This 117-nucleotide sequence from Clostridium thailandense belongs to the Rfam family "Molybdenum/Tungsten riboswitch aptamer (Moco RNA motif)".
The family has 160 seed sequences and 1,248 matches in Rfam 15.1.
Rfam links the family to the GO terms tungstate binding, molybdenum ion binding and regulation of gene expression.
The family's consensus secondary structure is taken from published work.
NCBI's taxonomy places the organism under Bacteria, Bacillota, Clostridia, Eubacteriales, Clostridium.

RNA sequence: CAAUUAAAUAAACUCUGAUCCAUAUUAACCUUAGGUUAGAGGCUAAUAUGGACGUUUAGGGUGUGAAGAGUAAUUUUUAUGCCUGCUAUUUUGCAAAGGAGUUCAUAUUCAUAUAGG
Number, nucleotide and partner (000 for none) at each position: 001c000002a000003a000004u000005u000006a108007a000008a000009u000010a000011a103012a102013c101014u100015c099016u098017g000018a000019u052020c051021c050022a049023u048024a047025u046026u045027a044028a000029c042030c039031u038032u000033a000034g000035g000036u000037u000038a031039g030040a000041g000042g029043c000044u027045a026046a025047u024048a023049u022050g021051g020052a019053c000054g000055u000056u000057u000058a000059g084060g083061g082062u081063g080064u079065g078066a077067a076068g075069a074070g000071u000072a000073a000074u069075u068076u067077u066078u065079a064080u063081g062082c061083c060084u059085g094086c093087u000088a000089u000090u000091u000092u000093g086094c085095a000096a000097a000098g016099g015100a014101g013102u012103u011104c000105a000106u000107a000108u006109u000110c000111a000112u000113a000114u000115a000116g000117g000